[Rfam]
RNA sequence: UUCAAAAAUAGUUUUGAAGUUUAUGCGGUUUAACCCACCGCGUAUAACAUAGAACGUUACAUAGGAGAAACAAAUG
Numbered sequence: 001u002u003c004a005a006a007a008a009u010a011g012u013u014u015u016g017a018a019g020u021u022u023a024u025g026c027g028g029u030u031u032a033a034c035c036c037a038c039c040g041c042g043u044a045u046a047a048c049a050u051a052g053a054a055c056g057u058u059a060c061a062u063a064g065g066a067g068a069a070a071c072a073a074a075u076g
Stems, first nucleotide, its partner, number of pairs: 001018006022044007045059004
Dot-bracket structure: ((((((......))))))...(((((((.........)))))))((((.......)))).................
RNA: freshwater-2 RNA